A member of the RNA family "SmY spliceosomal RNA" from Pristionchus pacificus, 79 nucleotides long. For this family Rfam cites "A novel family of C. elegans snRNPs contains proteins associated with trans-splicing" (MacMorris et al., RNA, 2007). The family has 61 seed sequences and 408 matches in Rfam 15.1.

[Rfam]
RNA sequence: AUUUGUACAUUACAUGUAUCAGGGCCAUGAACGAGACCCGGAGAGAGUUUUUGGGUACCCUUUCGCGCUUGAAAGGGUU
Number, nucleotide and partner (000 for none) at each position: 001a000002u000003u000004u000005g000006u000007a000008c000009a000010u000011u000012a000013c000014a000015u000016g000017u000018a000019u000020c000021a000022g039023g038024g037025c000026c035027a000028u033029g000030a000031a000032c000033g028034a000035g026036a000037c024038c023039c022040g000041g000042a000043g000044a000045g000046a000047g000048u000049u000050u000051u000052u000053g000054g000055g000056u000057a078058c077059c076060c075061u074062u073063u072064c071065g070066c000067g000068c000069u000070u065071g064072a063073a062074a061075g060076g059077g058078u057079u000